The record is a 117-nucleotide sequence from Saezia sanguinis, which matches "ALIL pseudoknot" in Rfam.
[Rfam]
RNA sequence: UGCGUUUUUUGCCCAGGCGGAGCUCGACUGCCAAUUGAAGAGAUGAAGCGCCUGAUUGAUCAAAAGCGCCAUGUCUUUGGGGUCGAGCCAAUGUGCAAGGUAUUGAACAUUGCCCCU
Numbered sequence: 001u002g003c004g005u006u007u008u009u010u011g012c013c014c015a016g017g018c019g020g021a022g023c024u025c026g027a028c029u030g031c032c033a034a035u036u037g038a039a040g041a042g043a044u045g046a047a048g049c050g051c052c053u054g055a056u057u058g059a060u061c062a063a064a065a066g067c068g069c070c071a072u073g074u075c076u077u078u079g080g081g082g083u084c085g086a087g088c089c090a091a092u093g094u095g096c097a098a099g100g101u102a103u104u105g106a107a108c109a110u111u112g113c114c115c116c117u
Base pairs, nucleotide, nucleotide: 016032017031018030019029020028079116080115081114082113089112090111092109093108094107096105097104098103
Rfam links the family to the GO term positive regulation of translational frameshifting. By type it is a cis-regulatory element. It scores 103 bits against the family's covariance model.